Shown here is a 219-nucleotide RNA from Linnemannia gamsii, a member of the family "Group II catalytic intron D1-D4-6".
NCBI's taxonomy places the organism under Eukaryota, Mortierellomycota, Mortierellomycotina, Mortierellomycetes, Linnemannia.
From the family's description: Group II introns are found in rRNA, tRNA and mRNA of organelles in fungi, plants and protists, and also in mRNA in bacteria.
RNA sequence: AAAGUUCGAUACGGAGAAGAAAUGGCGAAUCACUCUGGCCCCGAGUCAUGCGGUACGUUGAGGCACGUAUCGAAGCGUUGACAGGGGAAACCGGCAGGCCAGCCAUUGAGCCGCGAAAUCAACAAUCCGGGAUGCCGACGCAGUACCACAAUGCGGAAGGUAAUACGGGGCAUGACGACAAUCGCAAGCCAUGUCACGAUCCCGCGCGGUCGGAGACCC
Numbered sequence: 001a002a003a004g005u006u007c008g009a010u011a012c013g014g015a016g017a018a019g020a021a022a023u024g025g026c027g028a029a030u031c032a033c034u035c036u037g038g039c040c041c042c043g044a045g046u047c048a049u050g051c052g053g054u055a056c057g058u059u060g061a062g063g064c065a066c067g068u069a070u071c072g073a074a075g076c077g078u079u080g081a082c083a084g085g086g087g088a089a090a091c092c093g094g095c096a097g098g099c100c101a102g103c104c105a106u107u108g109a110g111c112c113g114c115g116a117a118a119u120c121a122a123c124a125a126u127c128c129g130g131g132a133u134g135c136c137g138a139c140g141c142a143g144u145a146c147c148a149c150a151a152u153g154c155g156g157a158a159g160g161u162a163a164u165a166c167g168g169g170g171c172a173u174g175a176c177g178a179c180a181a182u183c184g185c186a187a188g189c190c191a192u193g194u195c196a197c198g199a200u201c202c203c204g205c206g207c208g209g210u211c212g213g214a215g216a217c218c219c
Stems, first nucleotide, its partner, number of pairs: 012037005019031002023187001025185002039087004045082004049077002051072008107213001108211001110210006128204006134161003139155004166198002169195006176188001